RNA sequence: AUGUACGACGAGUACACUCCGGCUCCUCCGCGCCGUCCGCACCCGUCUGACGGCCGCUCGCUACGUUUUGUUAGCG
Dot-bracket structure: .(((((.....)))))...((((.(....).))))...........(((((((..............)))))))..
RNA: Xanthomonas sRNA sX9
Organism: Dyella sp. AD56